[Rfam]
RNA sequence: GAAGCACGCCAGACCGUCGCUGGUGCAAUCUCCGAAAGGAGGCACUGGAGGAACGUCCGGACUGCACAGGACAGCGUAGGAGGUAACACCUCUCCACCGUGAGGUGAGGAUCAGAGCAACAGAGACGAGCCGAUUGAGUUCGGGUGAAACGGGCAAUCUCUACGCGCAGCAAUACCAAGUAGGCCUUCCUGAAGGAGCGCGGUUCGCCGUAUUCUUUCUCCCUGUGGUUCCGCGGGGUGAGUUGGCGGGUAGGUAGCACCGAGCCGGGUGGGCAACCCCCGGCCCAGAGUAAUGGCGGUCACGCAGCGGGCAACCGCUGUGCACAGAAUCCGGCUUAUCGGCGGGCUUCACAC
Numbered sequence: 001g002a003a004g005c006a007c008g009c010c011a012g013a014c015c016g017u018c019g020c021u022g023g024u025g026c027a028a029u030c031u032c033c034g035a036a037a038g039g040a041g042g043c044a045c046u047g048g049a050g051g052a053a054c055g056u057c058c059g060g061a062c063u064g065c066a067c068a069g070g071a072c073a074g075c076g077u078a079g080g081a082g083g084u085a086a087c088a089c090c091u092c093u094c095c096a097c098c099g100u101g102a103g104g105u106g107a108g109g110a111u112c113a114g115a116g117c118a119a120c121a122g123a124g125a126c127g128a129g130c131c132g133a134u135u136g137a138g139u140u141c142g143g144g145u146g147a148a149a150c151g152g153g154c155a156a157u158c159u160c161u162a163c164g165c166g167c168a169g170c171a172a173u174a175c176c177a178a179g180u181a182g183g184c185c186u187u188c189c190u191g192a193a194g195g196a197g198c199g200c201g202g203u204u205c206g207c208c209g210u211a212u213u214c215u216u217u218c219u220c221c222c223u224g225u226g227g228u229u230c231c232g233c234g235g236g237g238u239g240a241g242u243u244g245g246c247g248g249g250u251a252g253g254u255a256g257c258a259c260c261g262a263g264c265c266g267g268g269u270g271g272g273c274a275a276c277c278c279c280c281g282g283c284c285c286a287g288a289g290u291a292a293u294g295g296c297g298g299u300c301a302c303g304c305a306g307c308g309g310g311c312a313a314c315c316g317c318u319g320u321g322c323a324c325a326g327a328a329u330c331c332g333g334c335u336u337a338u339c340g341g342c343g344g345g346c347u348u349c350a351c352a353c
Stems, first nucleotide, its partner, number of pairs: 001349005007343004011338001012300007020048007053336001055334001057333005062169004069230004074165005079093005094108001095106004109160002114158002116154002130143004173255004183246003188241001221236005263283006270277002
Bacterial RNase P class A: a 353-nucleotide sequence from Limnohabitans sp. 63ED37-2. Gene Ontology terms of the family: tRNA processing, ribonuclease P activity and dimeric ribonuclease P complex. The family's RNA type in Rfam is ribozyme. Lineage of the source: Bacteria > Pseudomonadati > Betaproteobacteria > Burkholderiales > Limnohabitans.